[Rfam]
RNA sequence: UUCGAGCGUGGGGGCUGUGAACUGCGGGCGGCAAAUCUGGUCGCCAAACCCAGAACCACAGGGGGAACGCCUGCAGGGAGCCAGUGGCGAAACCGACCACCACGAG
Numbered sequence: 001u002u003c004g005a006g007c008g009u010g011g012g013g014g015c016u017g018u019g020a021a022c023u024g025c026g027g028g029c030g031g032c033a034a035a036u037c038u039g040g041u042c043g044c045c046a047a048a049c050c051c052a053g054a055a056c057c058a059c060a061g062g063g064g065g066a067a068c069g070c071c072u073g074c075a076g077g078g079a080g081c082c083a084g085u086g087g088c089g090a091a092a093c094c095g096a097c098c099a100c101c102a103c104g105a106g
Stems, first nucleotide, its partner, number of pairs: 001106004006101001008100004013082003022076008039094002041090005